[Rfam]
The record is a 72-nucleotide sequence from Drosophila mojavensis, which matches "mir-929 microRNA precursor family" in Rfam. The organism belongs to mojavensis species complex, within Eukaryota. Pairs were carried over by alignment from the consensus structure, which was predicted with RNAalifold.
RNA sequence: GCAGUUCAAAUUGACUCUAGUAGGGAGUCCUUUUUUUUAACGACUCCCUAACGGAGUCAGAUUGAAUUUCAG
Numbered sequence: 001g002c003a004g005u006u007c008a009a010a011u012u013g014a015c016u017c018u019a020g021u022a023g024g025g026a027g028u029c030c031u032u033u034u035u036u037u038u039a040a041c042g043a044c045u046c047c048c049u050a051a052c053g054g055a056g057u058c059a060g061a062u063u064g065a066a067u068u069u070c071a072g
Stems, first nucleotide, its partner, number of pairs: 011060008021050009